[Rfam]
RNA: XIST 3' intron conserved motif
Organism: Chinchilla lanigera
RNA sequence: UUGAUCUUUUCCAUUUUGCAAUCACUCAGAGGGUGGAAUAGGAGGAAAAGUGAAGGAAAAGAUCAA
Dot-bracket structure: ((((((((((((.........(((((......................))))).))))))))))))
Numbered sequence: 001u002u003g004a005u006c007u008u009u010u011c012c013a014u015u016u017u018g019c020a021a022u023c024a025c026u027c028a029g030a031g032g033g034u035g036g037a038a039u040a041g042g043a044g045g046a047a048a049a050g051u052g053a054a055g056g057a058a059a060a061g062a063u064c065a066a
Stems, first nucleotide, its partner, number of pairs: 001066012022053005